[Rfam]
RNA sequence: UGGUCUCAAAUCAGACAAGACGACCCGCUGAACUUAAGCAUAUCAAUAAGCGGAGGAAAAGAAACCAACAGGGAUUCCCUUAGUAACGGCGAGUGAAGCGGGAAAAGCUCAAAUUUAAAAUCUCCUAGGUUCCCUAGGCGAAUUGUAGUUUCAAGAAGCGUAUUUCUGAGGUGGCCGCGGACCAAGUCUGCUGGAAGGCAGCGCCAUAGAGGGUGAUAGCCCCGUAGGUCUCUGAGUCCACUUCGUUAUGAUUGCGUCUUCGAAGAGUCGUACAGUUUGAGAAUGCUGUGCUAAUUGGGAGGUAAAUAUCUUCUAAAGCUAAAUACUGGCGUGAGACCGAUAGCGAACAAGUACCGUGAGGGAAAGAUGAAAAGAACUUUGAAAAGAGAGUUAAAUAGUACGUGAAAUUGUCUAAAGUGAAA
Numbered sequence: 001u002g003g004u005c006u007c008a009a010a011u012c013a014g015a016c017a018a019g020a021c022g023a024c025c026c027g028c029u030g031a032a033c034u035u036a037a038g039c040a041u042a043u044c045a046a047u048a049a050g051c052g053g054a055g056g057a058a059a060a061g062a063a064a065c066c067a068a069c070a071g072g073g074a075u076u077c078c079c080u081u082a083g084u085a086a087c088g089g090c091g092a093g094u095g096a097a098g099c100g101g102g103a104a105a106a107g108c109u110c111a112a113a114u115u116u117a118a119a120a121u122c123u124c125c126u127a128g129g130u131u132c133c134c135u136a137g138g139c140g141a142a143u144u145g146u147a148g149u150u151u152c153a154a155g156a157a158g159c160g161u162a163u164u165u166c167u168g169a170g171g172u173g174g175c176c177g178c179g180g181a182c183c184a185a186g187u188c189u190g191c192u193g194g195a196a197g198g199c200a201g202c203g204c205c206a207u208a209g210a211g212g213g214u215g216a217u218a219g220c221c222c223c224g225u226a227g228g229u230c231u232c233u234g235a236g237u238c239c240a241c242u243u244c245g246u247u248a249u250g251a252u253u254g255c256g257u258c259u260u261c262g263a264a265g266a267g268u269c270g271u272a273c274a275g276u277u278u279g280a281g282a283a284u285g286c287u288g289u290g291c292u293a294a295u296u297g298g299g300a301g302g303u304a305a306a307u308a309u310c311u312u313c314u315a316a317a318g319c320u321a322a323a324u325a326c327u328g329g330c331g332u333g334a335g336a337c338c339g340a341u342a343g344c345g346a347a348c349a350a351g352u353a354c355c356g357u358g359a360g361g362g363a364a365a366g367a368u369g370a371a372a373a374g375a376a377c378u379u380u381g382a383a384a385a386g387a388g389a390g391u392u393a394a395a396u397a398g399u400a401c402g403u404g405a406a407a408u409u410g411u412c413u414a415a416a417g418u419g420a421a422a
Stems, first nucleotide, its partner, number of pairs: 024055001025053005035042002065072002076103004086094002106320004112150004118144002121141002124138004155261002158257003165251002168244007176234002179231004186202001188201004205209001212222002270291007297314005354361002377388004
This 422-nucleotide part of an RNA from Rhizoclosmatium globosum belongs to the Rfam family "Eukaryotic large subunit ribosomal RNA". The source organism's lineage runs through Eukaryota, Chytridiomycota, Chytridiomycotina, Chytridiomycetes and Rhizoclosmatium. The family's consensus secondary structure is taken from published work. Rfam 15.1 lists 107,465 matches to the family in 2,616 species.